[Rfam]
RNA sequence: CUCUUAUCAAGAGCGGCGGAGGGAAUAGGCCCUGAGAUGCCCGGCAACCAGUAAGUGAUGAACUGACUAAGGUGCUAAAUCCUACAAAAUGGACAAUCAUUUUGAAAGAUAAGAG
Numbered sequence: 001c002u003c004u005u006a007u008c009a010a011g012a013g014c015g016g017c018g019g020a021g022g023g024a025a026u027a028g029g030c031c032c033u034g035a036g037a038u039g040c041c042c043g044g045c046a047a048c049c050a051g052u053a054a055g056u057g058a059u060g061a062a063c064u065g066a067c068u069a070a071g072g073u074g075c076u077a078a079a080u081c082c083u084a085c086a087a088a089a090u091g092g093a094c095a096a097u098c099a100u101u102u103u104g105a106a107a108g109a110u111a112a113g114a115g
Base pairs, nucleotide, nucleotide: 001115002114003113004112005111006110007109008108013042015041016040017039021032022031023030026084027083028082029081043076044075045074046073048072049071050068051067052066080107085104086103087102088101089100090099
Background:
Shown here is a 115-nucleotide RNA from Solibacillus silvestris, a member of the family "SAM riboswitch aptamer (S box leader)". Rfam describes the family as follows. The SAM riboswitch is found upstream of a number of genes which code for proteins involved in methionine or cysteine biosynthesis in Gram-positive bacteria. The match comes from Rfam's covariance-model search (86 bits).